[Rfam]
RNA sequence: AGGUACUCCCAAAUCUCGCCUGUGACGGGGGAGAUAGGGAUAACGGCUGGAUGGCACAGCCAGCGGUGCGCCUGUUCGACACAUCGACGGGGAGGAUAGCCCCUCAAGAACAGGUGACCCGCGAACCAUAAUCUCCCAACGCUCGGGAAACCGCGCGGAGAACGGCGCGGA
Numbered sequence: 001a002g003g004u005a006c007u008c009c010c011a012a013a014u015c016u017c018g019c020c021u022g023u024g025a026c027g028g029g030g031g032a033g034a035u036a037g038g039g040a041u042a043a044c045g046g047c048u049g050g051a052u053g054g055c056a057c058a059g060c061c062a063g064c065g066g067u068g069c070g071c072c073u074g075u076u077c078g079a080c081a082c083a084u085c086g087a088c089g090g091g092g093a094g095g096a097u098a099g100c101c102c103c104u105c106a107a108g109a110a111c112a113g114g115u116g117a118c119c120c121g122c123g124a125a126c127c128a129u130a131a132u133c134u135c136c137c138a139a140c141g142c143u144c145g146g147g148a149a150a151c152c153g154c155g156c157g158g159a160g161a162a163c164g165g166c167g168c169g170g171a
Base pairs, nucleotide, nucleotide: 003044004043007040008039009038010037013035014034015033016031017030019028020027045061046060047059048058049057064121065120066119068118071114072113073112074111075110076109077108090103091102092101134148135147136146137145139143151170152169153168154167155166156165158163
Overview: The record is a 171-nucleotide sequence from Halocalculus aciditolerans, which matches "Sense overlapping transcript RNA 0042 (sot)" in Rfam. For this family Rfam cites "Sense overlapping transcripts in IS1341-type transposase genes are functional non-coding RNAs in archaea" (Gomes-Filho et al., RNA Biol, 2015). The family's RNA type in Rfam is small RNA. Lineage of the source: Archaea > Methanobacteriota > Halobacteria > Halobacteriales > Halocalculus. About the family: It is associated with IS1341-type transposase (tnpB) genes, at the 3'-end in H. salinarum NRC-1. The tetraloop structural motif may be functional.